[Rfam]
RNA sequence: GGCCUAUGAUGUUAUGAAAAUUUGUCCGUACCAUCUGAGUCUCUGAUGUAUUAACCAAAUCUAGCUUUCUGAGGCCU
Numbered sequence: 001g002g003c004c005u006a007u008g009a010u011g012u013u014a015u016g017a018a019a020a021u022u023u024g025u026c027c028g029u030a031c032c033a034u035c036u037g038a039g040u041c042u043c044u045g046a047u048g049u050a051u052u053a054a055c056c057a058a059a060u061c062u063a064g065c066u067u068u069c070u071g072a073g074g075c076c077u
Stems, first nucleotide, its partner, number of pairs: 001076004
RNA: small nucleolar RNA snoR117